[Rfam]
The family of this 224-nucleotide RNA sequence is "RT-2 RNA". By type it is a small RNA.

RNA sequence: UGUGGCCAGACAAAGUAACCGCUGGGCGAAAUCAGUGCAAUACAGAAGGGGAACAGGACCGUCCCGCAUAUAUUGCGGGUAAAUAUAACCCCCGAUGCGGCGGCCCGGACGCUGCUUGCAUGGGCGGCGAAUGUGCGAUAGCCGCUUUCAUGGGCCUGUCCUUUGCAGUCGAGAACGCACUCCAUACCAGACUGUACGGGGGUUUUCACCUUGGAGGAUAAAUG
Numbered sequence: 001u002g003u004g005g006c007c008a009g010a011c012a013a014a015g016u017a018a019c020c021g022c023u024g025g026g027c028g029a030a031a032u033c034a035g036u037g038c039a040a041u042a043c044a045g046a047a048g049g050g051g052a053a054c055a056g057g058a059c060c061g062u063c064c065c066g067c068a069u070a071u072a073u074u075g076c077g078g079g080u081a082a083a084u085a086u087a088a089c090c091c092c093c094g095a096u097g098c099g100g101c102g103g104c105c106c107g108g109a110c111g112c113u114g115c116u117u118g119c120a121u122g123g124g125c126g127g128c129g130a131a132u133g134u135g136c137g138a139u140a141g142c143c144g145c146u147u148u149c150a151u152g153g154g155c156c157u158g159u160c161c162u163u164u165g166c167a168g169u170c171g172a173g174a175a176c177g178c179a180c181u182c183c184a185u186a187c188c189a190g191a192c193u194g195u196a197c198g199g200g201g202g203u204u205u206u207c208a209c210c211u212u213g214g215a216g217g218a219u220a221a222a223u224g
Stems, first nucleotide, its partner, number of pairs: 005038002019026002063079006087204008096196001097162001099160003102156005111119002122147007165195005173182001